[Rfam]
RNA sequence: CAGCACCUACACAGCGUAAGCCCUUCCUCUCAAACACCCUUGCAGCCCCGAAGCUGCGCCAGUUGAAUAAGUGCGCGUAUUUUAAA
Numbered sequence: 001c002a003g004c005a006c007c008u009a010c011a012c013a014g015c016g017u018a019a020g021c022c023c024u025u026c027c028u029c030u031c032a033a034a035c036a037c038c039c040u041u042g043c044a045g046c047c048c049c050g051a052a053g054c055u056g057c058g059c060c061a062g063u064u065g066a067a068u069a070a071g072u073g074c075g076c077g078u079a080u081u082u083u084a085a086a
Base pairs, nucleotide, nucleotide: 035065036064039062040061041058042057043056044055045054046053
The record is an 86-nucleotide RNA from Bacillus sp. SJS, which matches "BsrC" in Rfam. For this family Rfam cites "Novel small RNA-encoding genes in the intergenic regions of Bacillus subtilis" (Saito et al., Gene, 2008). From the family's description: The 301 nucleotide sequence from Kouji Nakamura has been trimmed to a highly conserved ~85 nucleotide long core to form this family. Rfam 15.1 lists 572 matches to the family in 553 species. The source organism's lineage runs through Bacteria, Bacillota, Bacilli, Bacillaceae and Bacillus.